[Rfam]
RNA sequence: AUGAAGCGUCGUGACUGGCGUGCAGAUGGGCCACCAUCGGGGAACGACAUCUUUAGUCAAGGCCGCUCGCCUGGGUCGCAAAA
Numbered sequence: 001a002u003g004a005a006g007c008g009u010c011g012u013g014a015c016u017g018g019c020g021u022g023c024a025g026a027u028g029g030g031c032c033a034c035c036a037u038c039g040g041g042g043a044a045c046g047a048c049a050u051c052u053u054u055a056g057u058c059a060a061g062g063c064c065g066c067u068c069g070c071c072u073g074g075g076u077c078g079c080a081a082a083a
Base pairs, nucleotide, nucleotide: 003053004052006050008048009047010046011045012044015041016040017071018070019069020068026037027036028035029034061077062076063075064074
Dot-bracket structure: ..((.(.(((((..(([[[[.....((((....))))..))..))))).).)).......((((...]]]]..))))......